Overview: Y RNA: a 108-nucleotide sequence from Panthera leo. A reference for the family is Teunissen et al. (2000), "Conserved features of Y RNAs: a comparison of experimentally derived secondary structures", Nucleic Acids Res. The family's RNA type in Rfam is non-coding RNA gene. Pairs were carried over by alignment from the consensus structure, which is taken from published work.

RNA sequence: GGCUGGUCUGAAGAUAGUGAGUUAUCUCAAUUGAUUGUUCACAGUUACAGGUUGAACUUCUUGUUCUAUUCUUUUGCCCCUCUCACUAUUGCACUUGACUAGUCUUUU
Numbered sequence: 001g002g003c004u005g006g007u008c009u010g011a012a013g014a015u016a017g018u019g020a021g022u023u024a025u026c027u028c029a030a031u032u033g034a035u036u037g038u039u040c041a042c043a044g045u046u047a048c049a050g051g052u053u054g055a056a057c058u059u060c061u062u063g064u065u066c067u068a069u070u071c072u073u074u075u076g077c078c079c080c081u082c083u084c085a086c087u088a089u090u091g092c093a094c095u096u097g098a099c100u101a102g103u104c105u106u107u108u
Base pairs, nucleotide, nucleotide: 001104002103003102004101005100006099007098008097010096011095015091016087017086018085019084020083021082029070030069031068033066034065